Rfam assigns this 118-nucleotide RNA from Candidatus Scalindua japonica to the family "Group II catalytic intron D1-D4-2". Pairs were carried over by alignment from the consensus structure. From the family's description: Group II introns are found in rRNA, tRNA and mRNA of organelles in fungi, plants and protists, and also in mRNA in bacteria. A search with the family's covariance model found it, with a score of 83 bits. Taxonomically the source falls in Candidatus Scalindua (Bacteria, Planctomycetota, Candidatus Brocadiia, Candidatus Scalinduaceae).
RNA sequence: CAAGGAAUCGACCCUUCGGUAUCGGCAUUCAGGUGUCGGUAUCAAACCACUUCAAGCAGCUUCUGUAAAGAGCAGUGGUCGUGAGCGUUGAAAAAAGUUAGAAUAUAAUCUGGCGAGG
Numbered sequence: 001c002a003a004g005g006a007a008u009c010g011a012c013c014c015u016u017c018g019g020u021a022u023c024g025g026c027a028u029u030c031a032g033g034u035g036u037c038g039g040u041a042u043c044a045a046a047c048c049a050c051u052u053c054a055a056g057c058a059g060c061u062u063c064u065g066u067a068a069a070g071a072g073c074a075g076u077g078g079u080c081g082u083g084a085g086c087g088u089u090g091a092a093a094a095a096a097g098u099u100a101g102a103a104u105a106u107a108a109u110c111u112g113g114c115g116a117g118g
Stems, first nucleotide, its partner, number of pairs: 002016004018043006025036004047118002051092005056082002059079003063075004097114006
Dot-bracket structure: .((((.......)))).((((((.((((....)))).))))))...((..(((((((.(((.((((.....)))).))).)).....)))))....((((((......))))))..))